[Rfam]
RNA sequence: CGCGUGGUGUUCGGCAAUAGUGACCGGAUAGCGACGCGGCUUAAGAGAGGC
Numbered sequence: 001c002g003c004g005u006g007g008u009g010u011u012c013g014g015c016a017a018u019a020g021u022g023a024c025c026g027g028a029u030a031g032c033g034a035c036g037c038g039g040c041u042u043a044a045g046a047g048a049g050g051c
Base pairs, nucleotide, nucleotide: 001038002037003036004035005034007032008031011027012026013025014024015022
RNA: L31-Gammaproteobacteria ribosomal protein leader
Organism: Budvicia aquatica